[Rfam]
RNA sequence: UUGCUUUAGGGAUGAACAAGUCCCUGAUAAUUUAAUCCAUUCAUCACUUUGUCAGCAUCACAAUUUUUAUGUUUUGCUGAUCAUUAUCGGAUGGUACAAGU
Numbered sequence: 001u002u003g004c005u006u007u008a009g010g011g012a013u014g015a016a017c018a019a020g021u022c023c024c025u026g027a028u029a030a031u032u033u034a035a036u037c038c039a040u041u042c043a044u045c046a047c048u049u050u051g052u053c054a055g056c057a058u059c060a061c062a063a064u065u066u067u068u069a070u071g072u073u074u075u076g077c078u079g080a081u082c083a084u085u086a087u088c089g090g091a092u093g094g095u096a097c098a099a100g101u
Stems, first nucleotide, its partner, number of pairs: 037094005051081007
Shown here is a 101-nucleotide RNA sequence from Solanum lycopersicum, a member of the family "Small nucleolar RNA snoR99". The literature on the family includes a 2002 paper in Curr Biol by Marker et al., "Experimental RNomics: identification of 140 candidates for small non-messenger RNAs in the plant Arabidopsis thaliana". NCBI's taxonomy places the organism under Eukaryota, eudicotyledons, Pentapetalae, Solanaceae, Solanum subgen. Lycopersicon. The family's consensus secondary structure was predicted with WAR. The family has 9 seed sequences and 733 matches in Rfam 15.1. Rfam classes the family as an H/ACA-box small nucleolar RNA.